mir-11 microRNA precursor family: a 75-nucleotide sequence from Coptotermes formosanus. The organism belongs to Coptotermes, within Eukaryota. A reference for the family is Chen et al. (2010), "Next-generation small RNA sequencing for microRNAs profiling in the honey bee Apis mellifera", Insect Mol Biol. Rfam links the family to the GO terms cellular response to gamma radiation, negative regulation of apoptotic process and negative regulation of cell death.
[Rfam]
RNA sequence: AUCAGUGCCGGAACUCUGGCUGUGACCUUGUGCGGUAGUUAACGUCACAUCACAGGCAGAGUUCUAGUUACUGGU
Numbered sequence: 001a002u003c004a005g006u007g008c009c010g011g012a013a014c015u016c017u018g019g020c021u022g023u024g025a026c027c028u029u030g031u032g033c034g035g036u037a038g039u040u041a042a043c044g045u046c047a048c049a050u051c052a053c054a055g056g057c058a059g060a061g062u063u064c065u066a067g068u069u070a071c072u073g074g075u
Stems, first nucleotide, its partner, number of pairs: 004072003008067001010065007020055006030048003